This 111-nucleotide RNA from Thermosyntropha lipolytica belongs to the Rfam family "TPP riboswitch aptamer (THI element)". The source organism's lineage runs through Bacteria, Bacillota, Syntrophomonadaceae, Thermosyntropha and Thermosyntropha lipolytica. Pairs were carried over by alignment from the consensus structure, which is taken from published work.
[Rfam]
RNA sequence: CUUAAUAUUAAGGGGAGCUGGACCUUUCCGGCUGAGAGUGGGCGAAAAGGAGCCCUGACCCUGGAACCUGAUCUGGGUAAUGCCAGCGUAGGGAAAAUGGUGCUAGAAGCU
Numbered sequence: 001c002u003u004a005a006u007a008u009u010a011a012g013g014g015g016a017g018c019u020g021g022a023c024c025u026u027u028c029c030g031g032c033u034g035a036g037a038g039u040g041g042g043c044g045a046a047a048a049g050g051a052g053c054c055c056u057g058a059c060c061c062u063g064g065a066a067c068c069u070g071a072u073c074u075g076g077g078u079a080a081u082g083c084c085a086g087c088g089u090a091g092g093g094a095a096a097a098u099g100g101u102g103c104u105a106g107a108a109g110c111u
Stems, first nucleotide, its partner, number of pairs: 006099004011062004016056001017032005040055004067092004073086004